A member of the RNA family "Z30 small nucleolar RNA" from Sphenodon punctatus, 98 nucleotides long. Its family is annotated with nucleolus and RNA processing in the Gene Ontology. The family's consensus secondary structure was predicted with PFOLD. The family has 20 seed sequences and 802 matches in Rfam 15.1. NCBI's taxonomy places the organism under Eukaryota, Euteleostomi, Sauria, Sphenodontidae, Sphenodon.
RNA sequence: AAGCAAUGAUGAUUGAAGUAUAGUCUGACUUGGUAUUGCCAAGACUUACCCUUUUGGCUCUGACCAGGGCAUGAUCACGUAAUCUUCUCUCUGAGCUG
Numbered sequence: 001a002a003g004c005a006a007u008g009a010u011g012a013u014u015g016a017a018g019u020a021u022a023g024u025c026u027g028a029c030u031u032g033g034u035a036u037u038g039c040c041a042a043g044a045c046u047u048a049c050c051c052u053u054u055u056g057g058c059u060c061u062g063a064c065c066a067g068g069g070c071a072u073g074a075u076c077a078c079g080u081a082a083u084c085u086u087c088u089c090u091c092u093g094a095g096c097u098g
Stems, first nucleotide, its partner, number of pairs: 001097001003096002038058004

It scores 104 bits against the family's covariance model.